[Rfam]
RNA sequence: CUCGCAGACCGCCUUAUCGUCGUCUUGGUAACAAGAAGGAGGAAAGUCCGGACACCAAAGAGUAGCAUAAUGGGUAACGCCCAUCCGCUGAAAAGUGAGGACAAGUGCAACAGAAAGUAUGUACAGAUAAUGCUGUAGUGAAACCAGGUAAACUCUAUGCGGUGAAAUGUCAAGUAUAUCAACAAUUUUAGUUUAGGCUAAAUAAGAAUUACUCGUUCGAUGUUGAAGGGUAGACAGCUUGAAUUUUGCAGUAAUGUAAAAUCUAGAUAAAUGAUAAGGGUUAUGCUCUUGCAUAAUACAGAAUCCGGCUUAUAGGUCUGCAUUUUUU
Numbered sequence: 001c002u003c004g005c006a007g008a009c010c011g012c013c014u015u016a017u018c019g020u021c022g023u024c025u026u027g028g029u030a031a032c033a034a035g036a037a038g039g040a041g042g043a044a045a046g047u048c049c050g051g052a053c054a055c056c057a058a059a060g061a062g063u064a065g066c067a068u069a070a071u072g073g074g075u076a077a078c079g080c081c082c083a084u085c086c087g088c089u090g091a092a093a094a095g096u097g098a099g100g101a102c103a104a105g106u107g108c109a110a111c112a113g114a115a116a117g118u119a120u121g122u123a124c125a126g127a128u129a130a131u132g133c134u135g136u137a138g139u140g141a142a143a144c145c146a147g148g149u150a151a152a153c154u155c156u157a158u159g160c161g162g163u164g165a166a167a168u169g170u171c172a173a174g175u176a177u178a179u180c181a182a183c184a185a186u187u188u189u190a191g192u193u194u195a196g197g198c199u200a201a202a203u204a205a206g207a208a209u210u211a212c213u214c215g216u217u218c219g220a221u222g223u224u225g226a227a228g229g230g231u232a233g234a235c236a237g238c239u240u241g242a243a244u245u246u247u248g249c250a251g252u253a254a255u256g257u258a259a260a261a262u263c264u265a266g267a268u269a270a271a272u273g274a275u276a277a278g279g280g281u282u283a284u285g286c287u288c289u290u291g292c293a294u295a296a297u298a299c300a301g302a303a304u305c306c307g308g309c310u311u312a313u314a315g316g317u318c319u320g321c322a323u324u325u326u327u328u
Base pairs, nucleotide, nucleotide: 004321005320006319007318008317009316010315011313012279013278014277015276016275017274018273020039021038023036024035025034026033027032044311045310046309048308049307050306051305052304053164054163055162056161060214061213062212063211065160066159067158068157069156070084071083072082073081074080085099086097087096088095089094100155101154105153106152107149108148123136124135125134126133168236169235170234171233179226180225181224182223183222206218207217208216209215243262244261245260246259247258248257249256250255

The record is a 328-nucleotide RNA from Flavobacterium sp. 316, which matches "Bacterial RNase P class A" in Rfam. Rfam's curators write: Ribonuclease P (RNase P) is a ubiquitous endoribonuclease, found in archaea, bacteria and eukarya as well as chloroplasts and mitochondria. The match comes from Rfam's covariance-model search (195 bits). The source organism's lineage runs through Bacteria, Bacteroidota, Flavobacteriia, Flavobacteriaceae and Flavobacterium. The family is grouped with related families in Rfam's "RNaseP clan".